RNA sequence: AUGUAUGUUAUUUCUUCCUCAAGGCCUUCCUUAAGACCUGUAGUACAAUUUUUGGAGACCCUGUCCUUUAGUAGGGUG
Numbered sequence: 001a002u003g004u005a006u007g008u009u010a011u012u013u014c015u016u017c018c019u020c021a022a023g024g025c026c027u028u029c030c031u032u033a034a035g036a037c038c039u040g041u042a043g044u045a046c047a048a049u050u051u052u053u054g055g056a057g058a059c060c061c062u063g064u065c066c067u068u069u070a071g072u073a074g075g076g077u078g
Stems, first nucleotide, its partner, number of pairs: 022039003026035003058077007
RNA: SmY spliceosomal RNA